[Rfam]
RNA: Acido-Lenti-1 RNA
RNA sequence: CCCAGGGCGGCGCCCUGGGCUUUCAUAUCGCGGCCUUUCAGGCCU
Numbered sequence: 001c002c003c004a005g006g007g008c009g010g011c012g013c014c015c016u017g018g019g020c021u022u023u024c025a026u027a028u029c030g031c032g033g034c035c036u037u038u039c040a041g042g043c044c045u
Base pairs, nucleotide, nucleotide: 001019002018003017004016005015006014007013008012032044033043034042035041036040